[Rfam]
Rfam assigns this 600-nucleotide part of an RNA from Acipenser ruthenus to the family "Eukaryotic large subunit ribosomal RNA". Lineage of the source: Eukaryota > Metazoa > Craniata > Acipenserini > Acipenser.
RNA sequence: UGCCCAGUGCUCUGAAUGUCAAAGUGAAGAAAUUCAACGAAGCGCGAGUAAAUGGCAGGAGUAACUAUGACUCUCUUGGGUAAGGAGUGGAGGGCUUAGUGGCCUUUACCUCCUCGUGGUCCCGCCGGUAACAUCUCCCUUCUGGGGAGGUGGCUAAACAAGGUCAACACCUAACCCUAGUGGGGAAGGGUGCAGAAGUAGCCUCGGUCUGGUGUGCGACCCUGGGGGAUUGCUAUGAGGACGAGGUGAACCUGGUCCCACCGCUCUAUAUGAUGCGGAAAAGGUUCCGGGAGGGUGUAGAAGUAGCCUCGGUUUGGUGUGCGAGCCUGGGGGAUUGCUAUCAGGACGAGGUGAACCUGGACCCUCCCUUGUGAUGCAGAAAAGGUGCCGGACUGUAUUUCCAUCCCGGCUAGAUAGCCCUUUGUGGUUGUAUGCAUCUGGGGGGCUGUCAAAAGAAGGCGAGCAUGCUUGAGAACCGGGCUUGGAGGUCUCGUGCUGGGCGGGAGCGAAUUACCCUGUGUUGGGCCUUUCGCUUCUCCAUUCCCGACCAUGUCCGUUCCUCUGUCUUGGAGGUCUUGUGCUGGUCGGGUGCGAAUUACC
Numbered sequence: 001u002g003c004c005c006a007g008u009g010c011u012c013u014g015a016a017u018g019u020c021a022a023a024g025u026g027a028a029g030a031a032a033u034u035c036a037a038c039g040a041a042g043c044g045c046g047a048g049u050a051a052a053u054g055g056c057a058g059g060a061g062u063a064a065c066u067a068u069g070a071c072u073c074u075c076u077u078g079g080g081u082a083a084g085g086a087g088u089g090g091a092g093g094g095c096u097u098a099g100u101g102g103c104c105u106u107u108a109c110c111u112c113c114u115c116g117u118g119g120u121c122c123c124g125c126c127g128g129u130a131a132c133a134u135c136u137c138c139c140u141u142c143u144g145g146g147g148a149g150g151u152g153g154c155u156a157a158a159c160a161a162g163g164u165c166a167a168c169a170c171c172u173a174a175c176c177c178u179a180g181u182g183g184g185g186a187a188g189g190g191u192g193c194a195g196a197a198g199u200a201g202c203c204u205c206g207g208u209c210u211g212g213u214g215u216g217c218g219a220c221c222c223u224g225g226g227g228g229a230u231u232g233c234u235a236u237g238a239g240g241a242c243g244a245g246g247u248g249a250a251c252c253u254g255g256u257c258c259c260a261c262c263g264c265u266c267u268a269u270a271u272g273a274u275g276c277g278g279a280a281a282a283g284g285u286u287c288c289g290g291g292a293g294g295g296u297g298u299a300g301a302a303g304u305a306g307c308c309u310c311g312g313u314u315u316g317g318u319g320u321g322c323g324a325g326c327c328u329g330g331g332g333g334a335u336u337g338c339u340a341u342c343a344g345g346a347c348g349a350g351g352u353g354a355a356c357c358u359g360g361a362c363c364c365u366c367c368c369u370u371g372u373g374a375u376g377c378a379g380a381a382a383a384g385g386u387g388c389c390g391g392a393c394u395g396u397a398u399u400u401c402c403a404u405c406c407c408g409g410c411u412a413g414a415u416a417g418c419c420c421u422u423u424g425u426g427g428u429u430g431u432a433u434g435c436a437u438c439u440g441g442g443g444g445g446c447u448g449u450c451a452a453a454a455g456a457a458g459g460c461g462a463g464c465a466u467g468c469u470u471g472a473g474a475a476c477c478g479g480g481c482u483u484g485g486a487g488g489u490c491u492c493g494u495g496c497u498g499g500g501c502g503g504g505a506g507c508g509a510a511u512u513a514c515c516c517u518g519u520g521u522u523g524g525g526c527c528u529u530u531c532g533c534u535u536c537u538c539c540a541u542u543c544c545c546g547a548c549c550a551u552g553u554c555c556g557u558u559c560c561u562c563u564g565u566c567u568u569g570g571a572g573g574u575c576u577u578g579u580g581c582u583g584g585u586c587g588g589g590u591g592c593g594a595a596u597u598a599c600c
Base pairs, nucleotide, nucleotide: 002056003055004054007053008052009049010048011047012046014045017044018043019042025036026035027034028033058074059073060072061071062070

The family's consensus secondary structure is taken from published work.